Mammalian CPEB3 ribozyme: a 77-nucleotide RNA sequence from Alligator mississippiensis. It scores 38 bits against the family's covariance model. Rfam describes the family as follows. The mammalian CPEB3 ribozyme is a self cleaving RNA located in the second intron of the CPEB3 gene which belongs to a family of genes regulating messenger RNA polyadenylation.

[Rfam]
RNA sequence: GUGGCGAGUUUGGAGGCCACAACAGAAGUGCUCGUAGUGUGGCCUGUCAGAUUCCAACGAAGUCUGUGAAUUCUGCU
Dot-bracket structure: ..............[[[[..(.((((((((.......)))]]]]...(((((((....))).))))....))))).)